[Rfam]
RNA sequence: GACGCGGGCCGGGUCCCUCUGGCGGCUGUUUUACCUCGACAGCCGCGAUGUCGUACCGCAUCG
Numbered sequence: 001g002a003c004g005c006g007g008g009c010c011g012g013g014u015c016c017c018u019c020u021g022g023c024g025g026c027u028g029u030u031u032u033a034c035c036u037c038g039a040c041a042g043c044c045g046c047g048a049u050g051u052c053g054u055a056c057c058g059c060a061u062c063g
Stems, first nucleotide, its partner, number of pairs: 006057002010053003022046008
A member of the RNA family "terC RNA" from Sphingorhabdus profundilacus, 63 nucleotides long. The match comes from Rfam's covariance-model search (49 bits). By type it is a cis-regulatory element. The base pairs follow the family's consensus structure, which is taken from published work.